[Rfam]
RNA: mir-10 microRNA precursor family
RNA sequence: CGUGAUCUACCCUGUAGAUCCGGGCUUUUGUAGUUUAUAGUUAUCAGAAGCUCGUCUCUACAGGUAUCUCACGG
Number, nucleotide and partner (000 for none) at each position: 001c000002g072003u071004g070005a069006u000007c000008u000009a000010c064011c063012c000013u000014g000015u000016a059017g058018a057019u000020c000021c054022g053023g052024g051025c050026u049027u048028u047029u046030g045031u000032a000033g000034u000035u000036u000037a000038u000039a000040g000041u000042u000043a000044u000045c030046a029047g028048a027049a026050g025051c024052u023053c022054g021055u000056c000057u018058c017059u016060a000061c000062a000063g011064g010065u000066a000067u000068c000069u005070c004071a003072c002073g000074g000